RNA sequence: ACCGGGCGUCGUGGCGGGCGUCUGUGAGCCAGCUCUUGGCGGUAGACUUGUGUGGAUGAAGUGAGAGGAGGAGUCCUGUGCGUGUCGGCGUCAACGUCGACCGAGCGUCCGUGCCAAGCGCUGCGUCGCCAGGGGCAGCCUGUCGGAAGACUGGGCUGUCCUGGGCGUAUAAAGAGCGGUGUACGGUUCAGGCCCGUGAGGGAGCAGACAAAAGCUGCCGCGCGGUGCAGUGGCCGGAUCGCGCUUGUGAGUUGACACGUACGCACAGCCUCUUCGAUACCUUCAGACCUCUGGUCGC
Numbered sequence: 001a002c003c004g005g006g007c008g009u010c011g012u013g014g015c016g017g018g019c020g021u022c023u024g025u026g027a028g029c030c031a032g033c034u035c036u037u038g039g040c041g042g043u044a045g046a047c048u049u050g051u052g053u054g055g056a057u058g059a060a061g062u063g064a065g066a067g068g069a070g071g072a073g074u075c076c077u078g079u080g081c082g083u084g085u086c087g088g089c090g091u092c093a094a095c096g097u098c099g100a101c102c103g104a105g106c107g108u109c110c111g112u113g114c115c116a117a118g119c120g121c122u123g124c125g126u127c128g129c130c131a132g133g134g135g136c137a138g139c140c141u142g143u144c145g146g147a148a149g150a151c152u153g154g155g156c157u158g159u160c161c162u163g164g165g166c167g168u169a170u171a172a173a174g175a176g177c178g179g180u181g182u183a184c185g186g187u188u189c190a191g192g193c194c195c196g197u198g199a200g201g202g203a204g205c206a207g208a209c210a211a212a213a214g215c216u217g218c219c220g221c222g223c224g225g226u227g228c229a230g231u232g233g234c235c236g237g238a239u240c241g242c243g244c245u246u247g248u249g250a251g252u253u254g255a256c257a258c259g260u261a262c263g264c265a266c267a268g269c270c271u272c273u274u275c276g277a278u279a280c281c282u283u284c285a286g287a288c289c290u291c292u293g294g295u296c297g298c
Stems, first nucleotide, its partner, number of pairs: 001043003004023007028040003045296004050291001052289001057285005065275007076268008086259002091255005097249001102247007109237002113234004118228009127167004132162010142151003168174001176218005186209003193202003

Overview
Metazoan signal recognition particle RNA: a 298-nucleotide RNA from Caenorhabditis japonica. It scores 226 bits against the family's covariance model. By type it is a non-coding RNA gene. The base pairs follow the family's consensus structure, which is taken from published work.